[Rfam]
Shown here is a 111-nucleotide RNA sequence from Synaphobranchus kaupii, a member of the family "Small nucleolar RNA SNORD67".
Rfam links the family to the GO terms RNA processing and nucleolus.
Rfam describes the family as follows. snoRNA HBII-166 belongs to the C/D family of snoRNAs.
NCBI's taxonomy places the organism under Eukaryota, Craniata, Actinopteri, Anguilliformes, Synaphobranchus.

RNA sequence: UGUGAGAAUGAUGAGUUGCACUGUAAGCUGGGACUCCAGUGCCGUGGCAUAGGAGUCUCAGUCCGACCUCCUGAGGACGCACUCAUGUGCACAGGGGCCAUCUGACUCACA
Numbered sequence: 001u002g003u004g005a006g007a008a009u010g011a012u013g014a015g016u017u018g019c020a021c022u023g024u025a026a027g028c029u030g031g032g033a034c035u036c037c038a039g040u041g042c043c044g045u046g047g048c049a050u051a052g053g054a055g056u057c058u059c060a061g062u063c064c065g066a067c068c069u070c071c072u073g074a075g076g077a078c079g080c081a082c083u084c085a086u087g088u089g090c091a092c093a094g095g096g097g098c099c100a101u102c103u104g105a106c107u108c109a110c111a
Stems, first nucleotide, its partner, number of pairs: 004110001006108002024066001027063001028061004033056003039050004
Dot-bracket structure: ...(.((................(..(((((.(((...((((....))))...))).)))).)..)........................................)).).
It is annotated as a C/D-box small nucleolar RNA.